[Rfam]
RNA sequence: GCUCUCCAUUGGUGCAAACCCGAUCACCUGAUUUAAGAUGACAAGCAAUUCUCUAUUGGUAGCAAAUGGUUAUCCAUUAAGCGAAGGAAAUCUUAU
Numbered sequence: 001g002c003u004c005u006c007c008a009u010u011g012g013u014g015c016a017a018a019c020c021c022g023a024u025c026a027c028c029u030g031a032u033u034u035a036a037g038a039u040g041a042c043a044a045g046c047a048a049u050u051c052u053c054u055a056u057u058g059g060u061a062g063c064a065a066a067u068g069g070u071u072a073u074c075c076a077u078u079a080a081g082c083g084a085a086g087g088a089a090a091u092c093u094u095a096u
Stems, first nucleotide, its partner, number of pairs: 009023004051086002054083001055077002058074006
Dot-bracket structure: ........((((.......))))...........................((.(((.((((((.....)))))).)).....).))..........

Plastid-rps12 3UTR RNA: a 96-nucleotide RNA sequence from Sesamum indicum.
It scores 90 bits against the family's covariance model.
From the family's description: Plastid rpl20 is a non-coding RNA (ncRNA) recognised in plastids. It was found in the three prime untranslated region (3UTR) of rps12 gene, its 3UTR location sugest a role in transcript maduration.
The family's RNA type in Rfam is cis-regulatory element.
On this family, see Richter et al., Plant Commun 2023: "Retrograde signaling in plants: A critical review focusing on the GUN pathway and beyond".
The family has 1,299 seed sequences and 1,710 matches in Rfam 15.1.